This 138-nucleotide RNA sequence from Cnephaeus nilssonii belongs to the Rfam family "Small nucleolar RNA SNORA24". Rfam's curators write: ACA24 is a member of the H/ACA class of snoRNA that guide the sites of modification of uridines to pseudouridines. The family's RNA type in Rfam is H/ACA-box small nucleolar RNA. It scores 102 bits against the family's covariance model.
RNA sequence: AUCAAUGACAAAAAAAUGCCUUCUGGACCUGUCACUGUGGCUGUCUCCCUUCCUAGCCAUGGAAGAGCAUUUUCUUGUUUAUGGCAAAGCUGUCACCAUUUAAUUGGUGUCAGAUUCUGACUUGCACAAGUAACAUUC
Numbered sequence: 001a002u003c004a005a006u007g008a009c010a011a012a013a014a015a016a017u018g019c020c021u022u023c024u025g026g027a028c029c030u031g032u033c034a035c036u037g038u039g040g041c042u043g044u045c046u047c048c049c050u051u052c053c054u055a056g057c058c059a060u061g062g063a064a065g066a067g068c069a070u071u072u073u074c075u076u077g078u079u080u081a082u083g084g085c086a087a088a089g090c091u092g093u094c095a096c097c098a099u100u101u102a103a104u105u106g107g108u109g110u111c112a113g114a115u116u117c118u119g120a121c122u123u124g125c126a127c128a129a130g131u132a133a134c135a136u137u138c
Stems, first nucleotide, its partner, number of pairs: 002063002005060003025048003029043001031041003076135004082128002084125004090113003095108004